[Rfam]
RNA sequence: UCUGUUAAAAUAAAAACGUUGCUCAAUUGCGAGUCAACCCUUGAGCCUUCUUCCCUUUGCUCAAGCAUAUUAAACGCGACAUUUUGUCGCCAAAGGAGAGUAUUUUG
Numbered sequence: 001u002c003u004g005u006u007a008a009a010a011u012a013a014a015a016a017c018g019u020u021g022c023u024c025a026a027u028u029g030c031g032a033g034u035c036a037a038c039c040c041u042u043g044a045g046c047c048u049u050c051u052u053c054c055c056u057u058u059g060c061u062c063a064a065g066c067a068u069a070u071u072a073a074a075c076g077c078g079a080c081a082u083u084u085u086g087u088c089g090c091c092a093a094a095g096g097a098g099a100g101u102a103u104u105u106u107g
Stems, first nucleotide, its partner, number of pairs: 018038004022033003040065007052098001054096004076090004
RNA: PreQ1-II (pre queuosine) riboswitch aptamer